[Rfam]
About this RNA: Rfam assigns this 198-nucleotide RNA from Jaculus jaculus to the family "Small nucleolar RNA SNORA73 family". A search with the family's covariance model found it, with a score of 89 bits. Pairs were carried over by alignment from the consensus structure, which is taken from published work.

RNA sequence: CCAACAUGGGUGCACCCAGCCAGAAGCCACUCUUCCUAGGAUCUGUUCAAGUGACAAAGAGGAGCACAGGGCUCUGUCCCAUGGUGGACAGUCCCCCUCCACAUGUUGGAGAUGAGCCUGGCCUAUGUCUGCAUAUUCCUUGGACUCUUCAGAGUGGUGUGGACAAUGACUGAGGAGAAAAACAUACAGCAAAAAGUU
Numbered sequence: 001c002c003a004a005c006a007u008g009g010g011u012g013c014a015c016c017c018a019g020c021c022a023g024a025a026g027c028c029a030c031u032c033u034u035c036c037u038a039g040g041a042u043c044u045g046u047u048c049a050a051g052u053g054a055c056a057a058a059g060a061g062g063a064g065c066a067c068a069g070g071g072c073u074c075u076g077u078c079c080c081a082u083g084g085u086g087g088a089c090a091g092u093c094c095c096c097c098u099c100c101a102c103a104u105g106u107u108g109g110a111g112a113u114g115a116g117c118c119u120g121g122c123c124u125a126u127g128u129c130u131g132c133a134u135a136u137u138c139c140u141u142g143g144a145c146u147c148u149u150c151a152g153a154g155u156g157g158u159g160u161g162g163a164c165a166a167u168g169a170c171u172g173a174g175g176a177g178a179a180a181a182a183c184a185u186a187c188a189g190c191a192a193a194a195a196g197u198u
Stems, first nucleotide, its partner, number of pairs: 001109007008048003013045002016040002022033003051102003061094003064089001067086002069082001129189003133185002145177006154164002
Rfam's curators write: U17 (SNORA73A and SNORA73B) also known as E1 belongs to the H/ACA class of small nucleolar RNAs (snoRNAs). Vertebrate U17 is intron-encoded and ranges in length from 200-230 nucleotides, longer than most snoRNAs. It is one of the most abundant snoRNAs in human cells and is essential for the cleavage of pre-rRNA within the 5' external transcribed spacer (ETS). This cleavage leads to the formation of 18S rRNA. Regions of the U17 RNA are complementary to rRNA and act as guides for RNA/RNA interactions, although these regions do not seem to be well conserved between organisms. The organism belongs to Jaculus, within Eukaryota. It is annotated as an H/ACA-box small nucleolar RNA.